[Rfam]
RNA sequence: GUGUAAGGACGACCUUACUUUAAGCAUAAAAACUUGGGGACGGCCCCA
Numbered sequence: 001g002u003g004u005a006a007g008g009a010c011g012a013c014c015u016u017a018c019u020u021u022a023a024g025c026a027u028a029a030a031a032a033c034u035u036g037g038g039g040a041c042g043g044c045c046c047c048a
Base pairs, nucleotide, nucleotide: 001020003018004017005016006015007014008013035048036047037046038045039044
RNA: Guanidine-II riboswitch aptamer (mini-ykkC)